[Rfam]
RNA sequence: UUCUUAUCCAGAGAGGUGGAGGGACUGGCCCUUUGAAGCCUCGGCAACAGACUCGAGAAAGAGUACUGUGCCAAUUCCAGAAGCGUAAUGCUUGAAGAUAAGAG
Numbered sequence: 001u002u003c004u005u006a007u008c009c010a011g012a013g014a015g016g017u018g019g020a021g022g023g024a025c026u027g028g029c030c031c032u033u034u035g036a037a038g039c040c041u042c043g044g045c046a047a048c049a050g051a052c053u054c055g056a057g058a059a060a061g062a063g064u065a066c067u068g069u070g071c072c073a074a075u076u077c078c079a080g081a082a083g084c085g086u087a088a089u090g091c092u093u094g095a096a097g098a099u100a101a102g103a104g
Stems, first nucleotide, its partner, number of pairs: 001104008013042005021031003025080004043072004048068002051064004076096001081093005
RNA: SAM riboswitch aptamer (S box leader)
Organism: Lentibacillus populi